[Rfam]
RNA sequence: GCUGGUGACGGUGAUGACCCUUUCCCCGUCAGAGCGAUAGUGUUGACCAUCGCUGUCCAAGCCAGGUCGUGUCUGACGCACCAGC
Dot-bracket structure: (((((((.......................................................................)))))))
Numbered sequence: 001g002c003u004g005g006u007g008a009c010g011g012u013g014a015u016g017a018c019c020c021u022u023u024c025c026c027c028g029u030c031a032g033a034g035c036g037a038u039a040g041u042g043u044u045g046a047c048c049a050u051c052g053c054u055g056u057c058c059a060a061g062c063c064a065g066g067u068c069g070u071g072u073c074u075g076a077c078g079c080a081c082c083a084g085c
Stems, first nucleotide, its partner, number of pairs: 001085007

Record summary
This 85-nucleotide RNA sequence from Pitta sordida belongs to the Rfam family "Small nucleolar SNORD12/SNORD106". Rfam 15.1 lists 2,264 matches to the family in 650 species. Its Rfam clan is "SNORD12 clan". On this family, see Vitali et al., Nucleic Acids Res 2003: "Identification of 13 novel human modification guide RNAs". Its family is annotated with RNA processing and nucleolus in the Gene Ontology. Pairs were carried over by alignment from the consensus structure, which was predicted with RNAalifold.